Background
The family of this 73-nucleotide sequence from Vagococcus vulneris is "tRNA".
RNA sequence: GGCGCAAUAGCUCAGUUGGUAGAGCAACGGAUUGAAGCUCCGUGUGUCGGCAGUUCGAUUCUGUCUUGCGCCA
Numbered sequence: 001g002g003c004g005c006a007a008u009a010g011c012u013c014a015g016u017u018g019g020u021a022g023a024g025c026a027a028c029g030g031a032u033u034g035a036a037g038c039u040c041c042g043u044g045u046g047u048c049g050g051c052a053g054u055u056c057g058a059u060u061c062u063g064u065c066u067u068g069c070g071c072c073a
Stems, first nucleotide, its partner, number of pairs: 001072007010025004027043005049065005
NCBI's taxonomy places the organism under Bacteria, Bacilli, Lactobacillales, Enterococcaceae, Vagococcus.